The record is a 143-nucleotide sequence from Halopseudomonas bauzanensis, which matches "PrrF RNA" in Rfam. Rfam links the family to the GO term sRNA-mediated gene silencing.
RNA sequence: UUGACAUGCAAAUGAUAACGAUUAUUAUUAACCACAAGUCGCCGCAAGGUGGCUUGGAUAACAGAACGUCGUGAGACGGACGGUUAUCUCCUCAUCAGGCUAAUCACGGAUUUAGGCCCGCUCUCUGAGCGGGCCCUUUUUUU
Numbered sequence: 001u002u003g004a005c006a007u008g009c010a011a012a013u014g015a016u017a018a019c020g021a022u023u024a025u026u027a028u029u030a031a032c033c034a035c036a037a038g039u040c041g042c043c044g045c046a047a048g049g050u051g052g053c054u055u056g057g058a059u060a061a062c063a064g065a066a067c068g069u070c071g072u073g074a075g076a077c078g079g080a081c082g083g084u085u086a087u088c089u090c091c092u093c094a095u096c097a098g099g100c101u102a103a104u105c106a107c108g109g110a111u112u113u114a115g116g117c118c119c120g121c122u123c124u125c126u127g128a129g130c131g132g133g134c135c136c137u138u139u140u141u142u143u
Base pairs, nucleotide, nucleotide: 035056036055037054038053039052040051041050042049043048062082068081070078090099091098092097115135116134117133118132119131120130121129122128
PrrF RNA is a small RNA involved in iron homeostasis and is found exclusively in Pseudomonas species. It scores 110 bits against the family's covariance model. It is annotated as a small RNA. Rfam 15.1 lists 107 matches to the family in 85 species.